RNA sequence: AUCUAGACAGCUCUCCGAGCCUUCCCGCCUAAGUCGAUGAUAUGGCGAGUUGGCCGUGGCAUUGGGCCACCAGGGAUCGCAUAGAAAUACGCGGUCCUCCCGGACAAUUGGAAAGGUGAACAUGUCGCAUACCU
Numbered sequence: 001a002u003c004u005a006g007a008c009a010g011c012u013c014u015c016c017g018a019g020c021c022u023u024c025c026c027g028c029c030u031a032a033g034u035c036g037a038u039g040a041u042a043u044g045g046c047g048a049g050u051u052g053g054c055c056g057u058g059g060c061a062u063u064g065g066g067c068c069a070c071c072a073g074g075g076a077u078c079g080c081a082u083a084g085a086a087a088u089a090c091g092c093g094g095u096c097c098u099c100c101c102g103g104a105c106a107a108u109u110g111g112a113a114a115g116g117u118g119a120a121c122a123u124g125u126c127g128c129a130u131a132c133c134u
Stems, first nucleotide, its partner, number of pairs: 004127001006125001012119002015116002019054003024049001026047004033041003056070005073098008082089002099111002
RNA: Molybdenum/Tungsten riboswitch aptamer (Moco RNA motif)